Small nucleolar RNA snR60/Z15/Z230/Z193/J17: a 96-nucleotide sequence from Elsinoe batatas. For this family Rfam cites "Identification of 10 novel snoRNA gene clusters from Arabidopsis thaliana" (Qu et al., Nucleic Acids Res, 2001).
RNA sequence: CAUGCACAAUGAUGAUACACCUACCAUAAGCAUAGUUCAACCGCAAUAACCGUGUGGAAAAACCUAUCCAUCUUUCGCUCCUAUCUGAUCUGCUCU
Numbered sequence: 001c002a003u004g005c006a007c008a009a010u011g012a013u014g015a016u017a018c019a020c021c022u023a024c025c026a027u028a029a030g031c032a033u034a035g036u037u038c039a040a041c042c043g044c045a046a047u048a049a050c051c052g053u054g055u056g057g058a059a060a061a062a063c064c065u066a067u068c069c070a071u072c073u074u075u076c077g078c079u080c081c082u083a084u085c086u087g088a089u090c091u092g093c094u095c096u
Stems, first nucleotide, its partner, number of pairs: 004093003008089001
A search with the family's covariance model found it, with a score of 44 bits.